[Rfam]
RNA sequence: UUGUUUUAUGAUGAGCAUUUUAUUUCAAGUUAUCCCUGUCAGAACUGGUAAUAAUAAAAUAAUGUUGAUAACGUUUGACUCUGAAAAAUCA
Numbered sequence: 001u002u003g004u005u006u007u008a009u010g011a012u013g014a015g016c017a018u019u020u021u022a023u024u025u026c027a028a029g030u031u032a033u034c035c036c037u038g039u040c041a042g043a044a045c046u047g048g049u050a051a052u053a054a055u056a057a058a059a060u061a062a063u064g065u066u067g068a069u070a071a072c073g074u075u076u077g078a079c080u081c082u083g084a085a086a087a088a089u090c091a
Base pairs, nucleotide, nucleotide: 001091003089004088005087006086007085

This 91-nucleotide sequence from Aspergillus brasiliensis belongs to the Rfam family "Small nucleolar RNA R38". snoR38 is a C/D box small nucleolar RNA conserved across yeast, human, Arabidopsis and rice. It is encoded in the intron of elongation factor-1 gamma in both pombe and cerevisiae. snoR38 guides the methylation of 2'-O-ribose sites in 28S rRNA. The organism belongs to Aspergillus brasiliensis, within Eukaryota. Gene Ontology terms of the family: RNA processing and nucleolus. Pairs were carried over by alignment from the consensus structure, which was predicted with PFOLD. On this family, see Chen et al., Nucleic Acids Res 2003: "The high diversity of snoRNAs in plants: identification and comparative study of 120 snoRNA genes from Oryza sativa". The family has 19 seed sequences and 2,295 matches in Rfam 15.1.